[Rfam]
RNA sequence: CUGCUGUUGUGGGGCAGCGGGAGAGGUCUGAGAUCGGUUGCUAGAACCUGUCCUUGGUUCGAGCCUAUAAAGCGUCCUUGUUGAGCAUUGCGGUGAAUAUGACUUGCACGUGUGAGUAGUCCAUGUGCAUACAUAUUGUAAACUUGUCUGUACACUCGAGGAAAGAAAUUUAGCAGAGACCAGGCAGCCGUGGUUGCGGCUUCGGGGAUGGCGCUUUCGGUUCAUUAGGAUAAAGGGGACGAUCGGUCUCAAGGGACUUUACCCUGCGUUU
Numbered sequence: 001c002u003g004c005u006g007u008u009g010u011g012g013g014g015c016a017g018c019g020g021g022a023g024a025g026g027u028c029u030g031a032g033a034u035c036g037g038u039u040g041c042u043a044g045a046a047c048c049u050g051u052c053c054u055u056g057g058u059u060c061g062a063g064c065c066u067a068u069a070a071a072g073c074g075u076c077c078u079u080g081u082u083g084a085g086c087a088u089u090g091c092g093g094u095g096a097a098u099a100u101g102a103c104u105u106g107c108a109c110g111u112g113u114g115a116g117u118a119g120u121c122c123a124u125g126u127g128c129a130u131a132c133a134u135a136u137u138g139u140a141a142a143c144u145u146g147u148c149u150g151u152a153c154a155c156u157c158g159a160g161g162a163a164a165g166a167a168a169u170u171u172a173g174c175a176g177a178g179a180c181c182a183g184g185c186a187g188c189c190g191u192g193g194u195u196g197c198g199g200c201u202u203c204g205g206g207g208a209u210g211g212c213g214c215u216u217u218c219g220g221u222u223c224a225u226u227a228g229g230a231u232a233a234a235g236g237g238g239a240c241g242a243u244c245g246g247u248c249u250c251a252a253g254g255g256a257c258u259u260u261a262c263c264c265u266g267c268g269u270u271u
Base pairs, nucleotide, nucleotide: 002014004012017267018266019265020264021263023257027253030250031249032248033247034246035245036244037243038242039241040240042238044060045059046058047057048056050054061223062222063221066219069217070216071215072214073213074212075211076207077206078205079204080203083200085197086196087195088193089192090191091190092189093188099136100135101134104131105129106128107127108126109125110124111123112122114121115120144187145186146185147184148183149182150181155178156177157176162171163170164169